RNA sequence: ACAGUACAAACUGAGCAGGCAAUGACCAGAGCGGUCAUGCAGCCGGGCUGCGAAAGCGGCAACAGAUGAUUACACGCACAUCUGUGGGACAGUU
Numbered sequence: 001a002c003a004g005u006a007c008a009a010a011c012u013g014a015g016c017a018g019g020c021a022a023u024g025a026c027c028a029g030a031g032c033g034g035u036c037a038u039g040c041a042g043c044c045g046g047g048c049u050g051c052g053a054a055a056g057c058g059g060c061a062a063c064a065g066a067u068g069a070u071u072a073c074a075c076g077c078a079c080a081u082c083u084g085u086g087g088g089a090c091a092g093u094u
Stems, first nucleotide, its partner, number of pairs: 010093004016088001018044003022038006047060005062085006
A member of the RNA family "NiCo (Nickel/Cobalt) riboswitch aptamer" from Erysipelotrichaceae bacterium 3_1_53, 94 nucleotides long.
The sequence is in the family's curated seed alignment.
Lineage of the source: Bacteria > Bacillota > Erysipelotrichia > Erysipelotrichales > Erysipelotrichaceae.
The family is grouped with related families in Rfam's "NiCo_riboswitches".
Rfam links the family to the GO terms cobalt ion binding and metal ion homeostasis.